[Rfam]
RNA sequence: UCUCUUGAGACCGACCCGAAAGUAACUUAAGACGCGGAAGGGAGAGUCAAAAAGAGAAAGAGACCUAAAGGGUGAAAGCGAAUCGGGGAAGAUAAGCUAGCAGCAAAAAGGAACCGAUUCCCACCAAGUUCGGAAAGAGAUACCGGGCGAGGCGCUGAAGAAAGAAUCUCGCUUCAGACACCCCAAGGACUCGACUAAAGAAA
Number, nucleotide and partner (000 for none) at each position: 001u057002c056003u055004c054005u000006u000007g000008a000009g000010a000011c000012c000013g000014a000015c042016c041017c040018g000019a000020a000021a000022g000023u000024a000025a000026c000027u000028u000029a000030a000031g000032a000033c000034g000035c000036g000037g000038a000039a000040g017041g016042g015043a000044g000045a000046g000047u000048c000049a000050a000051a000052a000053a000054g004055a003056g002057a001058a000059a000060g000061a000062g000063a000064c000065c187066u186067a000068a000069a000070g182071g181072g000073u000074g000075a000076a000077a000078g000079c000080g120081a119082a118083u117084c116085g115086g114087g000088g000089a000090a000091g000092a000093u000094a000095a000096g000097c000098u000099a000100g000101c000102a000103g000104c000105a000106a000107a000108a000109a000110g000111g000112a000113a000114c086115c085116g084117a083118u082119u081120c080121c000122c000123a000124c000125c000126a000127a000128g148129u000130u146131c145132g144133g143134a000135a000136a000137g170138a169139g168140a167141u166142a000143c133144c132145g131146g130147g000148c128149g000150a000151g000152g000153c000154g000155c177156u176157g175158a174159a173160g172161a000162a000163a000164g000165a000166a141167u140168c139169u138170c137171g000172c160173u159174u158175c157176a156177g155178a000179c000180a000181c071182c070183c000184c000185a000186a066187g065188g000189a000190c000191u000192c000193g000194a000195c000196u000197a000198a000199a000200g000201a000202a000203a000
Overview
The record is a 203-nucleotide RNA sequence, which matches "IMES-1 RNA motif" in Rfam. For this family Rfam cites "Exceptional structured noncoding RNAs revealed by bacterial metagenome analysis" (Weinberg et al., Nature, 2009). It is one of the family's seed sequences.